Xanthine riboswitch aptamer (NMT1 RNA): a 54-nucleotide sequence from Acinetobacter dispersus. For this family Rfam cites "A bacterial riboswitch class senses xanthine and uric acid to regulate genes associated with purine oxidation" (Yu and Breaker, RNA, 2020). Rfam's curators put it in the seed alignment. The organism belongs to Acinetobacter, within Bacteria. Rfam links the family to the GO term purine nucleobase binding. The family's consensus secondary structure is taken from published work.
[Rfam]
RNA sequence: UUACUGAGUAUAAGCGGUCAGUGUGUUGUGAACACACGGGACAUUGCUCUACAG
Numbered sequence: 001u002u003a004c005u006g007a008g009u010a011u012a013a014g015c016g017g018u019c020a021g022u023g024u025g026u027u028g029u030g031a032a033c034a035c036a037c038g039g040g041a042c043a044u045u046g047c048u049c050u051a052c053a054g
Base pairs, nucleotide, nucleotide: 006049007048008047009046010045015039018041019040021037022036023035024034025033026032027031